[Rfam]
Nucleotides: 086
Stems, first nucleotide, its partner, number of pairs: 001078005010072004014040005020034006042060007
Number, partner (000 for none) and nucleotide at each position: 001078g002077a003076a004075c005074c006000a007000g008000g009000g010072g011071g012070u013069c014040g015039g016038g017037u018036u019000g020034c021033u022032u023031u024030g025029c026000c027000u028000g029025g030024c031023g032022a033021a034020g035000c036018g037017a038016c039015c040014u041000a042060a043059g044058g045057g046056c047055a048054c049000a050000g051000g052000g053000a054048g055047u056046g057045c058044c059043c060042u061000c062000g063000g064000c065000a066000a067000c068000g069013g070012a071011c072010c073000g074005g075004g076003u077002u078001c079000g080000g081000c082000a083000g084000a085000g086000c